[Rfam]
Nucleotides: 098
Base pairs, nucleotide, nucleotide: 003091004090009085010084011083014081016079017078018077019076020075021073022072023071025069026068027067028066029065031063032062033061
Number, partner (000 for none) and nucleotide at each position: 001000a002000u003091c004090a005000u006000c007000u008000g009085g010084g011083g012000a013000u014081c015000c016079u017078g018077u019076u020075a021073a022072a023071a024000u025069g026068c027067a028066g029065a030000u031063u032062c033061u034000a035000a036000u037000u038000c039000a040000g041000u042000a043000g044000g045000u046000u047000u048000g049000g050000a051000g052000u053000g054000g055000g056000g057000a058000u059000g060000g061033a062032g063031a064000u065029u066028c067027u068026g069025u070000g071023u072022u073021u074000c075020u076019a077018a078017c079016a080000a081014g082000c083011u084010c085009c086000c087000a088000g089000u090004u091003g092000g093000u094000g095000c096000u097000g098000a

The record is a 98-nucleotide RNA sequence from Vulpes vulpes, which matches "mir-544 microRNA precursor family" in Rfam. The literature on the family includes a 2010 paper in Genes Dev by Chiang et al., "Mammalian microRNAs: experimental evaluation of novel and previously annotated genes". The family has 16 seed sequences and 10,750 matches in Rfam 15.1.